[Rfam]
Nucleotides: 061
Base pairs, nucleotide, nucleotide: 017045018044019043020042021041022040023039024038025037027035
Number, partner (000 for none) and nucleotide at each position: 001000u002000a003000c004000g005000a006000c007000a008000c009000c010000c011000a012000u013000c014000a015000a016000a017045g018044g019043a020042g021041u022040a023039g024038u025037u026000a027035c028000u029000c030000a031000u032000u033000c034000a035027g036000a037025a038024g039023c040022u041021a042020c043019u044018u045017u046000a047000c048000c049000a050000u051000a052000u053000u054000u055000c056000g057000a058000a059000g060000u061000u